[Rfam]
Rfam assigns this 51-nucleotide RNA from Vibrio nereis to the family "L31-Gammaproteobacteria ribosomal protein leader". Lineage of the source: Bacteria > Gammaproteobacteria > Vibrionales > Vibrionaceae > Vibrio. On this family, see Eckert and Weinberg, BMC Microbiol 2020: "Discovery of 20 novel ribosomal leader candidates in bacteria and archaea". The family's RNA type in Rfam is cis-regulatory leader. It is one of the family's seed sequences.

RNA sequence: CGUGUGGUGUCCGGCCAAGAUUCGGAUAGCGACACGGCCUAUAUUAGAGGU
Numbered sequence: 001c002g003u004g005u006g007g008u009g010u011c012c013g014g015c016c017a018a019g020a021u022u023c024g025g026a027u028a029g030c031g032a033c034a035c036g037g038c039c040u041a042u043a044u045u046a047g048a049g050g051u
Base pairs, nucleotide, nucleotide: 001036002035003034004033005032007030008029011025012024013023014022015019